Annotation
Potassium channel RNA editing signal: a 114-nucleotide RNA sequence from Chiloscyllium punctatum. Rfam links the family to the GO term adenosine to inosine editing. About the family: This family represents a group of sequences related to the human potassium channel Kv1.1 hairpin element which directs the efficient modification of an adenosine to inosine by an adenosine deaminase acting on RNA (ADAR). The ADAR modification causes an isoleucine/valine recoding event which lies in the ion-conducting pore of the potassium channel. It is thought that this editing event targets the process of fast inactivation and allows a more rapid recovery from inactivation at negative potentials.
RNA sequence: CUUGGAUAUGGAGACAUGUACCCUCAGACCUGGUCUGGCAUGUUAGUAGGAGCUCUCUGUGCCCUUGCAGGCGUGCUGACAAUAGCAAUGCCUGUACCAGUUAUUGUCAAUAAU
Numbered sequence: 001c002u003u004g005g006a007u008a009u010g011g012a013g014a015c016a017u018g019u020a021c022c023c024u025c026a027g028a029c030c031u032g033g034u035c036u037g038g039c040a041u042g043u044u045a046g047u048a049g050g051a052g053c054u055c056u057c058u059g060u061g062c063c064c065u066u067g068c069a070g071g072c073g074u075g076c077u078g079a080c081a082a083u084a085g086c087a088a089u090g091c092c093u094g095u096a097c098c099a100g101u102u103a104u105u106g107u108c109a110a111u112a113a114u
Stems, first nucleotide, its partner, number of pairs: 002113001004111001008107004013102003018097004037077004049063002